[Rfam]
RNA sequence: GCAACAGGACGACCUGUCGCGACAAGGUCGCAACAGGACGACCUG
Numbered sequence: 001g002c003a004a005c006a007g008g009a010c011g012a013c014c015u016g017u018c019g020c021g022a023c024a025a026g027g028u029c030g031c032a033a034c035a036g037g038a039c040g041a042c043c044u045g
Stems, first nucleotide, its partner, number of pairs: 001020002004017005034045004
A member of the RNA family "Guanidine-II riboswitch aptamer (mini-ykkC)" from Colocasia esculenta, 45 nucleotides long. Rfam 15.1 lists 1,589 matches to the family in 1,229 species. It scores 34 bits against the family's covariance model.